[Rfam]
RNA: TPP riboswitch aptamer (THI element)
RNA sequence: AGACGUCCGCACGGGAGCCCGAGGCACGGGCUGAGAGGGAGCCGCCGCUCCGACCGUGGAACCUGAUCCGGGUCAUGCCGGCGCAGGGAGCGUGAUUCUCAUGACC
Numbered sequence: 001a002g003a004c005g006u007c008c009g010c011a012c013g014g015g016a017g018c019c020c021g022a023g024g025c026a027c028g029g030g031c032u033g034a035g036a037g038g039g040a041g042c043c044g045c046c047g048c049u050c051c052g053a054c055c056g057u058g059g060a061a062c063c064u065g066a067u068c069c070g071g072g073u074c075a076u077g078c079c080g081g082c083g084c085a086g087g088g089a090g091c092g093u094g095a096u097u098c099u100c101a102u103g104a105c106c
Base pairs, nucleotide, nucleotide: 006094008092009091010090011057012056013055014054017031018030019029020028021027038051039050040049041048042047062087063086064085065084068081069080070079071078